[Rfam]
RNA sequence: AUUGGGACUAGUCCGGGUGGCUUGGCGUCACCUGUAACCUGAAACUGCCAAUACGCAGGGGACGAAGUUUGAGGACGGCUGUGUCAGUCCUUCCUAUGUUGCAUGUUCCAACGUUGAUACCUUGUCCUGCGAGGUCAGCGGAUGUGAUGGAUACAUCCGGAGGGAUGUAUUAUCUCAUUGUUGUGGGCACCGGUUCAGGCCCGGAAGGGAGCAGACCUCACCGUAAACGCAUGGCGCCCGCAGGGUUGCGGGGCGGAGAAGGGAUAUGUAACAGAAGUUGGAUAUGCGCUUCCAACCGAGAACGUGUCCCAAU
Numbered sequence: 001a002u003u004g005g006g007a008c009u010a011g012u013c014c015g016g017g018u019g020g021c022u023u024g025g026c027g028u029c030a031c032c033u034g035u036a037a038c039c040u041g042a043a044a045c046u047g048c049c050a051a052u053a054c055g056c057a058g059g060g061g062a063c064g065a066a067g068u069u070u071g072a073g074g075a076c077g078g079c080u081g082u083g084u085c086a087g088u089c090c091u092u093c094c095u096a097u098g099u100u101g102c103a104u105g106u107u108c109c110a111a112c113g114u115u116g117a118u119a120c121c122u123u124g125u126c127c128u129g130c131g132a133g134g135u136c137a138g139c140g141g142a143u144g145u146g147a148u149g150g151a152u153a154c155a156u157c158c159g160g161a162g163g164g165a166u167g168u169a170u171u172a173u174c175u176c177a178u179u180g181u182u183g184u185g186g187g188c189a190c191c192g193g194u195u196c197a198g199g200c201c202c203g204g205a206a207g208g209g210a211g212c213a214g215a216c217c218u219c220a221c222c223g224u225a226a227a228c229g230c231a232u233g234g235c236g237c238c239c240g241c242a243g244g245g246u247u248g249c250g251g252g253g254c255g256g257a258g259a260a261g262g263g264a265u266a267u268g269u270a271a272c273a274g275a276a277g278u279u280g281g282a283u284a285u286g287c288g289c290u291u292c293c294a295a296c297c298g299a300g301a302a303c304g305u306g307u308c309c310c311a312a313u
Stems, first nucleotide, its partner, number of pairs: 001313008011063004015033007038059004067303004073297002077293002081289001087283004093277001095275001097273013112258001114256001118255001120253006126244006133237001134235004138230003141179004146174003150171009181226006192217004200209003
The record is a 313-nucleotide RNA sequence from Methanocorpusculum labreanum, which matches "Archaeal signal recognition particle RNA" in Rfam. Rfam classes the family as a non-coding RNA gene. The match comes from Rfam's covariance-model search (198 bits). The literature on the family includes a 2009 paper in RNA Biol by Rosenblad et al., "Kinship in the SRP RNA family". Pairs were carried over by alignment from the consensus structure, which is taken from published work. The family is grouped with related families in Rfam's "SRP clan".